RNA sequence: ACUGAAACAGGGCAAAUCCCGCGAAAGCGGGAGACGCAAAGUCAUCGGUCUACCGGGUCAGGCAAUGCCUGACCCCACGACGGCAGGACUGCCAGA
Numbered sequence: 001a002c003u004g005a006a007a008c009a010g011g012g013c014a015a016a017u018c019c020c021g022c023g024a025a026a027g028c029g030g031g032a033g034a035c036g037c038a039a040a041g042u043c044a045u046c047g048g049u050c051u052a053c054c055g056g057g058u059c060a061g062g063c064a065a066u067g068c069c070u071g072a073c074c075c076c077a078c079g080a081c082g083g084c085a086g087g088a089c090u091g092c093c094a095g096a
Base pairs, nucleotide, nucleotide: 012037013036017032018031019030020029021028022027040090041089042088043087045086047084048081049080050079055075056074057073058072059071060070061069062068063067